[Rfam]
Shown here is a 475-nucleotide sequence from Ophiocordyceps camponoti-floridani, a member of the family "RNase MRP". The family's consensus secondary structure is taken from published work. Rfam 15.1 lists 3,510 matches to the family in 2,315 species. NCBI's taxonomy places the organism under Eukaryota, Pezizomycotina, Hypocreomycetidae, Ophiocordycipitaceae, Ophiocordyceps. Rfam's curators write: RNase MRP is an enzymatically active ribonucleoprotein with two distinct roles in eukaryotes. In mitochondria it plays a direct role in the initiation of mitochondrial DNA replication. In the nucleus it is involved in precursor rRNA processing, where it cleaves the internal transcribed spacer 1 between 18S and 5.8S rRNAs. Despite distinct functions, RNase MRP has been shown to be evolutionarily related to RNase P. Like eukaryotic RNase P, RNase MRP is not catalytically active without associated protein subunits. It is annotated as a ribozyme.
RNA sequence: CCCUCGCUCGACAAAUCGCCAUUCGAAGCUCACACACAGAGACACAGCCGCAAGGCAGCGUCUCACCAUCAGCUUCGGGAGAAAGUCCCCGGACAACUCCAUCAGGAGCCUGCGGAAACGCGCCGCCAUAGAAGCACUGCGGUUUACCUCGGCUCCCUCUGGCCCUCGCGCCGGAAACCCCCGCCCUGCCCGCCGCUACCUCCGUCCAACGUCUCCCCUUUCCUCCCGUCGAAGCUCCUCGUCGUGCGCCUCCGGCCCUCUUGGAUGAAGAUAUGAGUCCGUGCCGGGCGGCUGUGCGUCGGGAUGGCUUUCGCGCGGGGGGGGUGGGAGGAAUGGCGCUUCUCGGAUGACGGGUGGACGCUGGGGGGUUCUGCGUGGGUGGUGUCGGGCGCCGAGGAUCGUUGUCGAUAUUGAUAGGUAUGCGAUUGCCUGGCGCAAGCUGGGUUACUCGAUGGGGCUUAUUCUCGAGGCGAGG
Dot-bracket structure: .((((((((((..((((((...(((((((.........(((((.(............).))))).......)))))).)...[[[.[[[[....................((((....))))...................................((((((......))))))............................................................................................................................................................................................((....))..................................................)))))).((((((....)))))).........]]]]]]]....)))).))))))
Numbered sequence: 001c002c003c004u005c006g007c008u009c010g011a012c013a014a015a016u017c018g019c020c021a022u023u024c025g026a027a028g029c030u031c032a033c034a035c036a037c038a039g040a041g042a043c044a045c046a047g048c049c050g051c052a053a054g055g056c057a058g059c060g061u062c063u064c065a066c067c068a069u070c071a072g073c074u075u076c077g078g079g080a081g082a083a084a085g086u087c088c089c090c091g092g093a094c095a096a097c098u099c100c101a102u103c104a105g106g107a108g109c110c111u112g113c114g115g116a117a118a119c120g121c122g123c124c125g126c127c128a129u130a131g132a133a134g135c136a137c138u139g140c141g142g143u144u145u146a147c148c149u150c151g152g153c154u155c156c157c158u159c160u161g162g163c164c165c166u167c168g169c170g171c172c173g174g175a176a177a178c179c180c181c182c183g184c185c186c187u188g189c190c191c192g193c194c195g196c197u198a199c200c201u202c203c204g205u206c207c208a209a210c211g212u213c214u215c216c217c218c219u220u221u222c223c224u225c226c227c228g229u230c231g232a233a234g235c236u237c238c239u240c241g242u243c244g245u246g247c248g249c250c251u252c253c254g255g256c257c258c259u260c261u262u263g264g265a266u267g268a269a270g271a272u273a274u275g276a277g278u279c280c281g282u283g284c285c286g287g288g289c290g291g292c293u294g295u296g297c298g299u300c301g302g303g304a305u306g307g308c309u310u311u312c313g314c315g316c317g318g319g320g321g322g323g324g325u326g327g328g329a330g331g332a333a334u335g336g337c338g339c340u341u342c343u344c345g346g347a348u349g350a351c352g353g354g355u356g357g358a359c360g361c362u363g364g365g366g367g368g369u370u371c372u373g374c375g376u377g378g379g380u381g382g383u384g385u386c387g388g389g390c391g392c393c394g395a396g397g398a399u400c401g402u403u404g405u406c407g408a409u410a411u412u413g414a415u416a417g418g419u420a421u422g423c424g425a426u427u428g429c430c431u432g433g434c435g436c437a438a439g440c441u442g443g444g445u446u447a448c449u450c451g452a453u454g455g456g457g458c459u460u461a462u463u464c465u466c467g468a469g470g471c472g473a474g475g
Stems, first nucleotide, its partner, number of pairs: 002475006008468004014427006023079001024077006039064005045058001083460003087457004111122004158175006364371002429444006